The family of this 144-nucleotide sequence from Mesorhizobium australicum is "Alphaproteobacterial sRNA ar7".
RNA sequence: CAUCGGCAAUUAACGCCGAGUUCGGUUGAAGGCCCGUCCCCCGCCUAUACCGGACACUGCGGCAGCCUCAUCCCCCCUCUCCGGGCUGCCGCAUCGUUUCGAGUAAGGCCGCCACGGAACCCCCCUCCACCGUGGCGGCCAUUU
Numbered sequence: 001c002a003u004c005g006g007c008a009a010u011u012a013a014c015g016c017c018g019a020g021u022u023c024g025g026u027u028g029a030a031g032g033c034c035c036g037u038c039c040c041c042c043g044c045c046u047a048u049a050c051c052g053g054a055c056a057c058u059g060c061g062g063c064a065g066c067c068u069c070a071u072c073c074c075c076c077c078u079c080u081c082c083g084g085g086c087u088g089c090c091g092c093a094u095c096g097u098u099u100c101g102a103g104u105a106a107g108g109c110c111g112c113c114a115c116g117g118a119a120c121c122c123c124c125c126u127c128c129a130c131c132g133u134g135g136c137g138g139c140c141a142u143u144u
Stems, first nucleotide, its partner, number of pairs: 021054006031045003058093010109138009
Rfam classes the family as a small RNA. Taxonomically the source falls in Mesorhizobium (Bacteria, Pseudomonadota, Alphaproteobacteria, Phyllobacteriaceae). The pairing is the family consensus, mapped onto this sequence.